[Rfam]
RNA sequence: UUUCAAAGGUUGACUUACAUGAUCCACAAUUUCCGUCUACUAAGCCUACUACUAAUCGCCUUUAGUGUGCGCGGUAUACUGGUAGACUGAAUUCUAAGUUAACCUUUACCAGAGAUAAAAAAACCCGCGCCGUACGCGGGUUUUUUU
Numbered sequence: 001u002u003u004c005a006a007a008g009g010u011u012g013a014c015u016u017a018c019a020u021g022a023u024c025c026a027c028a029a030u031u032u033c034c035g036u037c038u039a040c041u042a043a044g045c046c047u048a049c050u051a052c053u054a055a056u057c058g059c060c061u062u063u064a065g066u067g068u069g070c071g072c073g074g075u076a077u078a079c080u081g082g083u084a085g086a087c088u089g090a091a092u093u094c095u096a097a098g099u100u101a102a103c104c105u106u107u108a109c110c111a112g113a114g115a116u117a118a119a120a121a122a123a124c125c126c127g128c129g130c131c132g133u134a135c136g137c138g139g140g141u142u143u144u145u146u147u
Stems, first nucleotide, its partner, number of pairs: 005107012033089001035087008050076004057071003120144010
Dot-bracket structure: ....((((((((((((................(.((((((((.......((((...(((.........))).))))...)))))))).)......))))))))))))............((((((((((.....))))))))))...